[Rfam]
RNA sequence: GCCGGGAUGAGUCGCGCCGUCCUGUAGCCCGAGCUUCACGGGGGCAUGGUGGUGUGGAUCGAAUAUCUCCUGUGGGGUCCCAUCGCUGCGUGUCGAUGGCUUGCCCGCUCCGAGCCUAGAUUCGCCAGUGCGUCCUCUCCGAAGGGAGGUGGCGCGCGGGUGCUGAAGAGGGGGAGAAUGCGCGAGGCGGGAAACCGAGCAGCGAAAACUCCCCGAUCCAGGCAGCGGAGGGAUAACAAGCCUGAACGUGGGCUGGUGGAUCAGCCUCCCAGAUCCGAGAUUGGAAACCACCACCUUU
Number, nucleotide and partner (000 for none) at each position: 001g045002c044003c043004g023005g022006g021007a020008u019009g018010a000011g000012u000013c000014g000015c000016g000017c000018c009019g008020u007021c006022c005023u004024g000025u000026a000027g000028c042029c041030c040031g039032a000033g000034c000035u000036u000037c000038a000039c031040g030041g029042g028043g003044g002045c001046a000047u000048g295049g294050u293051g292052g291053u290054g289055u000056g288057g000058a000059u285060c284061g000062a282063a281064u280065a000066u000067c000068u278069c000070c272071u271072g270073u000074g268075g267076g266077g265078u264079c000080c256081c255082a254083u000084c252085g000086c250087u000088g249089c248090g247091u245092g000093u000094c000095g000096a000097u000098g242099g241100c240101u239102u238103g237104c000105c232106c231107g000108c230109u229110c228111c227112g226113a000114g223115c222116c221117u220118a000119g218120a217121u216122u215123c162124g161125c160126c159127a000128g157129u156130g155131c154132g153133u152134c151135c000136u149137c148138u147139c146140c145141g000142a000143a000144g000145g140146g139147a138148g137149g136150u000151g134152g133153c132154g131155c130156g129157c128158g000159g126160g125161u124162g123163c168164u000165g000166a000167a000168g163169a000170g213171g212172g211173g210174g209175a000176g000177a000178a000179u206180g000181c204182g203183c202184g000185a000186g000187g000188c197189g196190g195191g000192a000193a000194a000195c190196c189197g188198a000199g000200c000201a000202g183203c182204g181205a000206a179207a000208a000209c174210u173211c172212c171213c170214c000215g122216a121217u120218c119219c000220a117221g116222g115223c114224a000225g000226c112227g111228g110229a109230g108231g106232g105233a000234u000235a000236a000237c103238a102239a101240g100241c099242c098243u000244g000245a091246a000247c090248g089249u088250g086251g000252g084253c000254u082255g081256g080257u000258g000259g000260a000261u000262c000263a000264g078265c077266c076267u075268c074269c000270c072271a071272g070273a000274u000275c000276c000277g000278a068279g000280a064281u063282u062283g000284g060285a059286a000287a000288c056289c054290a053291c052292c051293a050294c049295c048296u000297u000298u000
Rfam assigns this 298-nucleotide sequence from Chara braunii to the family "Plant signal recognition particle RNA". Rfam classes the family as a non-coding RNA gene. The family's consensus secondary structure is taken from published work. The organism belongs to Chara, within Eukaryota.